[Rfam]
A member of the RNA family "transfer-messenger RNA" from Helicobacter canis, 363 nucleotides long. A search with the family's covariance model found it, with a score of 138 bits. Bacterial tmRNA, also known as 10Sa RNA or SsrA, is named for its dual tRNA and mRNA-like properties. Its role is to liberate the mRNA from a stalled ribosome. To accomplish this part of the tmRNA is used as a reading frame that ends in a translation stop signal. The broken mRNA is replaced in the ribosome by the tmRNA and translation of the tmRNA leads to addition of a proteolysis tag to the incomplete protein enabling recognition by a protease. The family's RNA type in Rfam is non-coding RNA gene. Its family is annotated with RNA catabolic process in the Gene Ontology. Lineage of the source: Bacteria > Pseudomonadati > Epsilonproteobacteria > Helicobacter > Helicobacter canis.
RNA sequence: GGGGUCGAUUUGGCUUCGACAAGAUUCGUAUCCCUUGAGUGCAUGUCGGCUCGGUAAGCCGUAAAACUGCCAUACAAAUAAACGCAAACAAUGCAAACUUCGCUCCAGCUUACGCGAAAGCAGCAUAAGCCUAACUAAUUCCGGAGCCGAUUACUUAAGCGAGACUAGCGCGCUUGUGUGAUCGUUACUUAUGCUAGUUGCCCCUAGAUUCUGCUCGAUCUCUAGGGAAAGAUGAGAGCUUUUUGCGCAAGUAAAGUUUAAGGUCUUUUUGCGCGAGAAUCUAAAACCUUAGCCCUUUAAGCAUGUCGAGUCUCUUGCGGUCGCGGAUUUUGGACUGGGGUUCAACUCCCCACGACUCCACCA
Numbered sequence: 001g002g003g004g005u006c007g008a009u010u011u012g013g014c015u016u017c018g019a020c021a022a023g024a025u026u027c028g029u030a031u032c033c034c035u036u037g038a039g040u041g042c043a044u045g046u047c048g049g050c051u052c053g054g055u056a057a058g059c060c061g062u063a064a065a066a067c068u069g070c071c072a073u074a075c076a077a078a079u080a081a082a083c084g085c086a087a088a089c090a091a092u093g094c095a096a097a098c099u100u101c102g103c104u105c106c107a108g109c110u111u112a113c114g115c116g117a118a119a120g121c122a123g124c125a126u127a128a129g130c131c132u133a134a135c136u137a138a139u140u141c142c143g144g145a146g147c148c149g150a151u152u153a154c155u156u157a158a159g160c161g162a163g164a165c166u167a168g169c170g171c172g173c174u175u176g177u178g179u180g181a182u183c184g185u186u187a188c189u190u191a192u193g194c195u196a197g198u199u200g201c202c203c204c205u206a207g208a209u210u211c212u213g214c215u216c217g218a219u220c221u222c223u224a225g226g227g228a229a230a231g232a233u234g235a236g237a238g239c240u241u242u243u244u245g246c247g248c249a250a251g252u253a254a255a256g257u258u259u260a261a262g263g264u265c266u267u268u269u270u271g272c273g274c275g276a277g278a279a280u281c282u283a284a285a286a287c288c289u290u291a292g293c294c295c296u297u298u299a300a301g302c303a304u305g306u307c308g309a310g311u312c313u314c315u316u317g318c319g320g321u322c323g324c325g326g327a328u329u330u331u332g333g334a335c336u337g338g339g340g341u342u343c344a345a346c347u348c349c350c351c352a353c354g355a356c357u358c359c360a361c362c363a
Base pairs, nucleotide, nucleotide: 001359002358003357004356005355006354007353020332021331022330023329024328025327026326027325028324029323030321031320032319034317037314038313039312040310042305043304044303045302046301047061048060049059050058051057053071054070055069056068148184149183150182151181152180153179154178156176158174159173160172161171164198165197166196167195168194169193202227203226204225205224206223207222208221213239214238215237216236243276244275245274246273247272248271249270250269251268256294258292259291263288336352337351338350339349340348